[Rfam]
RNA: Small nucleolar RNA snR8
RNA sequence: GUGAUACGAAAUAAAAAGCCUUCUAUUCACUGUGCCAUCUUUGUAUCCGUAGAUGAUCAGAGGGGAAAAGAACGGCUAGACCAAGGUUCCUGCGCGAGCGUCCUCAUACUGUCUGAAUCGAUUAGCAAGUCUGGGUUCAGUCGGUAACUGCGCGAGCGCUACAUUC
Numbered sequence: 001g002u003g004a005u006a007c008g009a010a011a012u013a014a015a016a017a018g019c020c021u022u023c024u025a026u027u028c029a030c031u032g033u034g035c036c037a038u039c040u041u042u043g044u045a046u047c048c049g050u051a052g053a054u055g056a057u058c059a060g061a062g063g064g065g066a067a068a069a070g071a072a073c074g075g076c077u078a079g080a081c082c083a084a085g086g087u088u089c090c091u092g093c094g095c096g097a098g099c100g101u102c103c104u105c106a107u108a109c110u111g112u113c114u115g116a117a118u119c120g121a122u123u124a125g126c127a128a129g130u131c132u133g134g135g136u137u138c139a140g141u142c143g144g145u146a147a148c149u150g151c152g153c154g155a156g157c158g159c160u161a162c163a164u165u166c
Stems, first nucleotide, its partner, number of pairs: 018076002021072002030062002033059002036055005092159004098153003109144003113140007